Rfam assigns this 80-nucleotide sequence from Nostoc sp. 'Peltigera malacea cyanobiont' DB3992 to the family "Photosynthesis regulatory RNA1". The match comes from Rfam's covariance-model search (64 bits). From the family's description: Formerly known as Syr1 discovered in Synechocystis sp PCC 6803, is a regulatory factor controlling photosynthetic functions. PsrR1 interacts with the ribosome binding regions of several photosynthesis-related mRNAs. In particular, psaL mRNA is processed by RNase E only in the presence of PsrR1. Rfam 15.1 lists 92 matches to the family in 57 species.

[Rfam]
RNA sequence: AAAAACAGACUUCGGUUUUACAAUAUCCCAUCGACAUUUAGACUUCUCCCAUUUACCUCGGCUAUCAAGUCGGGGUUUUU
Numbered sequence: 001a002a003a004a005a006c007a008g009a010c011u012u013c014g015g016u017u018u019u020a021c022a023a024u025a026u027c028c029c030a031u032c033g034a035c036a037u038u039u040a041g042a043c044u045u046c047u048c049c050c051a052u053u054u055a056c057c058u059c060g061g062c063u064a065u066c067a068a069g070u071c072g073g074g075g076u077u078u079u080u
Stems, first nucleotide, its partner, number of pairs: 055076008
The organism belongs to Nostoc cyanobionts, within Bacteria. Its family is annotated with regulation of translation and regulation of photosynthesis in the Gene Ontology. Pairs were carried over by alignment from the consensus structure, which was predicted with CMfinder. A reference for the family is Georg et al. (2014), "The small regulatory RNA SyR1/PsrR1 controls photosynthetic functions in cyanobacteria", Plant Cell.